[Rfam]
Nucleotides: 175
Stems, first nucleotide, its partner, number of pairs: 001016006028175001031172002035167002040161004047155005063150002066147003074142003078138001080135005086115004092107004
Number, partner (000 for none) and nucleotide at each position: 001016u002015u003014g004013c005012g006011g007000g008000c009000g010000u011006c012005c013004g014003c015002a016001a017000a018000u019000c020000u021000g022000a023000a024000a025000g026000a027000a028175g029000c030000c031172a032171u033000u034000a035167g036166c037000a038000a039000a040161u041160c042159u043158g044000c045000a046000g047155u048154u049153c050152u051151g052000a053000c054000g055000a056000a057000c058000a059000g060000a061000a062000a063150c064149c065000a066147g067146a068145u069000a070000u071000a072000a073000g074142g075141c076140u077000c078138a079000u080135u081134u082133g083132a084131g085000c086115g087114g088113g089112c090000a091000a092107c093106c094105g095104a096000g097000c098000c099000a100000u101000a102000g103000a104095u105094u106093g107092g108000g109000a110000a111000c112089g113088c114087c115086c116000a117000a118000a119000a120000u121000u122000c123000a124000a125000c126000c127000g128000u129000a130000a131084c132083u133082c134081a135080a136000c137000g138078u139000g140076a141075g142074u143000a144000a145068a146067u147066c148000a149064g150063g151051c152050a153049g154048a155047a156000c157000u158043c159042a160041g161040a162000g163000a164000a165000a166036g167035u168000u169000u170000a171032g172031u173000a174000u175028c